[Rfam]
RNA sequence: AAAGCAGUGCAGGACUGACGGAUAAGUGGAAUUGACCACGUGCUCUGCAUUGUGUAACUUGCCGACCGUCUGGGCAGAGAAA
Numbered sequence: 001a002a003a004g005c006a007g008u009g010c011a012g013g014a015c016u017g018a019c020g021g022a023u024a025a026g027u028g029g030a031a032u033u034g035a036c037c038a039c040g041u042g043c044u045c046u047g048c049a050u051u052g053u054g055u056a057a058c059u060u061g062c063c064g065a066c067c068g069u070c071u072g073g074g075c076a077g078a079g080a081a082a
Stems, first nucleotide, its partner, number of pairs: 004053009015042001017070005026039004059077005
RNA: ZMP/ZTP riboswitch aptamer (pfl RNA motif)
Organism: Acidaminococcus intestini